[Rfam]
RNA sequence: CAGAGCUUUGGCAACUGUGAGCCAAGGGCGGUAGCUUG
Numbered sequence: 001c002a003g004a005g006c007u008u009u010g011g012c013a014a015c016u017g018u019g020a021g022c023c024a025a026g027g028g029c030g031g032u033a034g035c036u037u038g
Stems, first nucleotide, its partner, number of pairs: 008025005
The record is a 38-nucleotide RNA sequence from Dickeya dadantii, which matches "JUMPstart RNA" in Rfam. The base pairs follow the family's consensus structure, which is taken from published work. By type it is a cis-regulatory element. Lineage of the source: Bacteria > Pseudomonadati > Gammaproteobacteria > Enterobacterales > Dickeya dadantii. The match comes from Rfam's covariance-model search (40 bits).